[Rfam]
Shown here is a 79-nucleotide RNA sequence from Ophiophagus hannah, a member of the family "mir-2188 microRNA precursor family".
Gene Ontology terms of the family: RISC complex and miRNA-mediated post-transcriptional gene silencing.

RNA sequence: CCUUGUGGUCAAGGUCCAACCUCAUGCGUCCUGUAUGCAAUGAAAGUGGGAUGCAUGUGGUCAGACCUAGACCACAAGG
Numbered sequence: 001c002c003u004u005g006u007g008g009u010c011a012a013g014g015u016c017c018a019a020c021c022u023c024a025u026g027c028g029u030c031c032u033g034u035a036u037g038c039a040a041u042g043a044a045a046g047u048g049g050g051a052u053g054c055a056u057g058u059g060g061u062c063a064g065a066c067c068u069a070g071a072c073c074a075c076a077a078g079g
Base pairs, nucleotide, nucleotide: 001079002078004076005075006074007073008072009071010070012068013067014066015065016064019061020060021059023057024056025055026054027053028052030050031049032048
The family's consensus secondary structure was predicted with RNAalifold.